[Rfam]
RNA: glmS glucosamine-6-phosphate activated ribozyme aptamer
RNA sequence: UAUUAAUUUUAAGCGCCUGGACUAUUCUGAACGGAAUGGAAUAGUUGACGAGGUGGAGGUUUAUCGAACGGUCGGCGGAUGCCUCCCGGCUGAAUCACAGCCGUAAGCUUGAACGAAAACAAAGAGGCGACUCUUUGCACAAACGUUUAAGCAUGAUUAAUA
Numbered sequence: 001u002a003u004u005a006a007u008u009u010u011a012a013g014c015g016c017c018u019g020g021a022c023u024a025u026u027c028u029g030a031a032c033g034g035a036a037u038g039g040a041a042u043a044g045u046u047g048a049c050g051a052g053g054u055g056g057a058g059g060u061u062u063a064u065c066g067a068a069c070g071g072u073c074g075g076c077g078g079a080u081g082c083c084u085c086c087c088g089g090c091u092g093a094a095u096c097a098c099a100g101c102c103g104u105a106a107g108c109u110u111g112a113a114c115g116a117a118a119a120c121a122a123a124g125a126g127g128c129g130a131c132u133c134u135u136u137g138c139a140c141a142a143a144c145g146u147u148u149a150a151g152c153a154u155g156a157u158u159a160a161u162a
Stems, first nucleotide, its partner, number of pairs: 020046008029037001055086005064075004087103006107152007120137007